[Rfam]
SAM riboswitch aptamer (S box leader): a 122-nucleotide RNA from Candidatus Kuenenia stuttgartensis.
The organism belongs to Candidatus Kuenenia, within Bacteria.
It is one of the family's seed sequences.

RNA sequence: AUCUUAUCCGGAGUGGCAGAGGGACUGGCCCUGUGAAGCCACAGCAACCGGCCUGUUCAGAUUACGUCUGAACAUGGUGCAGGUGCUAAUUCCUGUCUCAAGUUUUUGGGAAAAGAUAAGAU
Numbered sequence: 001a002u003c004u005u006a007u008c009c010g011g012a013g014u015g016g017c018a019g020a021g022g023g024a025c026u027g028g029c030c031c032u033g034u035g036a037a038g039c040c041a042c043a044g045c046a047a048c049c050g051g052c053c054u055g056u057u058c059a060g061a062u063u064a065c066g067u068c069u070g071a072a073c074a075u076g077g078u079g080c081a082g083g084u085g086c087u088a089a090u091u092c093c094u095g096u097c098u099c100a101a102g103u104u105u106u107u108g109g110g111a112a113a114a115g116a117u118a119a120g121a122u
Stems, first nucleotide, its partner, number of pairs: 001122008013042005021031003025095001027093002043087004048083002051078003091114001096111006
Description:
The literature on the family includes a 1998 paper in Mol Microbiol by Grundy and Henkin, "The S box regulon: a new global transcription termination control system for methionine and cysteine biosynthesis genes in gram-positive bacteria".